[Rfam]
RNA sequence: ACGCUAGAAGGGAGGUGUUCCGGAAGUGAUUUCUUCUCGGACUUGCGAGGUGGCUGCGGGCUGACGGCCCGUCGUCGCACUCUGUGCAGUGCCGGCAGACCGCCGGCCGAAAUCCCAAGCAGUCACCGACCCGCGGGCUCGCCGGUAAGUCCGGCCGGCUCCUCCGCAAGGAGGGACCAGAGCCCGCGGGUUUCUGCGU
Numbered sequence: 001a002c003g004c005u006a007g008a009a010g011g012g013a014g015g016u017g018u019u020c021c022g023g024a025a026g027u028g029a030u031u032u033c034u035u036c037u038c039g040g041a042c043u044u045g046c047g048a049g050g051u052g053g054c055u056g057c058g059g060g061c062u063g064a065c066g067g068c069c070c071g072u073c074g075u076c077g078c079a080c081u082c083u084g085u086g087c088a089g090u091g092c093c094g095g096c097a098g099a100c101c102g103c104c105g106g107c108c109g110a111a112a113u114c115c116c117a118a119g120c121a122g123u124c125a126c127c128g129a130c131c132c133g134c135g136g137g138c139u140c141g142c143c144g145g146u147a148a149g150u151c152c153g154g155c156c157g158g159c160u161c162c163u164c165c166g167c168a169a170g171g172a173g174g175g176a177c178c179a180g181a182g183c184c185c186g187c188g189g190g191u192u193u194c195u196g197c198g199u
Stems, first nucleotide, its partner, number of pairs: 015057003019053001059108005065102001067100001069098001072095003128192012141159006
RNA: Actinobacteria sRNA Ms_IGR-5
Organism: Streptomyces sp. SID10853